[Rfam]
Nucleotides: 130
Base pairs, nucleotide, nucleotide: 027058028057029056030055031054033043034042035041090115091114092113093112094111095110096109097108098107099106
Number, partner (000 for none) and nucleotide at each position: 001000g002000a003000u004000a005000a006000a007000g008000u009000a010000a011000a012000u013000u014000u015000c016000u017000a018000a019000c020000c021000u022000a023000a024000g025000a026000c027058g028057u029056g030055g031054g032000u033043g034042g035041c036000g037000u038000a039000a040000a041035g042034c043033c044000u045000c046000a047000a048000u049000a050000c051000a052000a053000u054031c055030c056029c057028g058027c059000c060000g061000a062000g063000g064000c065000c066000a067000g068000a069000a070000g071000a072000u073000a074000a075000u076000g077000a078000a079000g080000a081000u082000u083000g084000u085000u086000a087000a088000a089000c090115u091114c092113u093112c094111c095110a096109u097108g098107u099106c100000u101000u102000u103000c104000u105000u106099g107098g108097c109096a110095u111094g112093g113092a114091g115090g116000u117000u118000u119000u120000u121000a122000g123000g124000c125000c126000u127000u128000g129000u130000a
This 130-nucleotide sequence from Lactobacillus delbrueckii belongs to the Rfam family "Ribosomal protein L10 leader".
By type it is a cis-regulatory leader.
From the family's description: This family is a putative r-protein leader autoregulatory structure found in B. subtilis and other low-GC Gram-positive bacteria.